[Rfam]
The record is a 92-nucleotide RNA from Calderihabitans maritimus, which matches "pan motif" in Rfam. A search with the family's covariance model found it, with a score of 58 bits. The family's RNA type in Rfam is cis-regulatory element.
RNA sequence: AGGUUGGCAUCCUUCGGGAGCCAAACCGGUUUAGAUACAGGAUUUCUUUGAGUAGAGUUUCCGCUUGGAGCCAAAAGGACCGAGACGGAAGG
Numbered sequence: 001a002g003g004u005u006g007g008c009a010u011c012c013u014u015c016g017g018g019a020g021c022c023a024a025a026c027c028g029g030u031u032u033a034g035a036u037a038c039a040g041g042a043u044u045u046c047u048u049u050g051a052g053u054a055g056a057g058u059u060u061c062c063g064c065u066u067g068g069a070g071c072c073a074a075a076a077g078g079a080c081c082g083a084g085a086c087g088g089a090a091g092g
Base pairs, nucleotide, nucleotide: 002027003026004024005023006022007021008020010019011018061088062087063086064084065083066082067081068080071078072077